[Rfam]
RNA: Small nucleolar RNA snoR77
Organism: Tripterygium wilfordii
RNA sequence: AGGCAACUUUUUGUGGUCGAUUUUGGGCAAAAGAGGUGUUGAACUGCUCGUAUAUUGAAUUUGCUUUGGCUCUUCAGACUUGCUGAGAGAUUGAUUCUUUGAAGCUCGUCUAGUAAGCCCAAGUACAUU
Numbered sequence: 001a002g003g004c005a006a007c008u009u010u011u012u013g014u015g016g017u018c019g020a021u022u023u024u025g026g027g028c029a030a031a032a033g034a035g036g037u038g039u040u041g042a043a044c045u046g047c048u049c050g051u052a053u054a055u056u057g058a059a060u061u062u063g064c065u066u067u068g069g070c071u072c073u074u075c076a077g078a079c080u081u082g083c084u085g086a087g088a089g090a091u092u093g094a095u096u097c098u099u100u101g102a103a104g105c106u107c108g109u110c111u112a113g114u115a116a117g118c119c120c121a122a123g124u125a126c127a128u129u
Stems, first nucleotide, its partner, number of pairs: 002040004007036002009033004014029002017026002064123003069118003076111004082105003087097003